[Rfam]
RNA sequence: GGGAAAUGGCCACAGGGUUUGGGAAAGGAGCCACCUAGGCCCUCAGGAUUUUAAGGCUCC
Number, nucleotide and partner (000 for none) at each position: 001g000002g000003g000004a000005a000006a000007u000008g000009g000010c000011c000012a000013c000014a043015g042016g041017g040018u039019u038020u037021g036022g035023g034024a000025a000026a000027g000028g059029a058030g057031c056032c055033a000034c023035c022036u021037a020038g019039g018040c017041c016042c015043u014044c000045a000046g000047g000048a000049u000050u000051u000052u000053a000054a000055g032056g031057c030058u029059c028060c000
RNA: Ma3 gene ribosomal frameshift signal